[Rfam]
Rfam assigns this 87-nucleotide RNA sequence from Solanum lycopersicum to the family "small nucleolar RNA snoR114".
It scores 60 bits against the family's covariance model.
The family's consensus secondary structure was predicted with RNAalifold.
RNA sequence: GAGCUGUGAAGAAAUUUGCAUUAAGCAGUGAUUAAGGGUCUCUGCAAUCGUCUGAUUUAGAUGAUUAAAACUAGCACAUCUGAGCUC
Numbered sequence: 001g002a003g004c005u006g007u008g009a010a011g012a013a014a015u016u017u018g019c020a021u022u023a024a025g026c027a028g029u030g031a032u033u034a035a036g037g038g039u040c041u042c043u044g045c046a047a048u049c050g051u052c053u054g055a056u057u058u059a060g061a062u063g064a065u066u067a068a069a070a071c072u073a074g075c076a077c078a079u080c081u082g083a084g085c086u087c
Stems, first nucleotide, its partner, number of pairs: 001087004
For this family Rfam cites "Mining small RNA sequencing data: a new approach to identify small nucleolar RNAs in Arabidopsis" (Chen and Wu, Nucleic Acids Res, 2009). Rfam classes the family as a C/D-box small nucleolar RNA.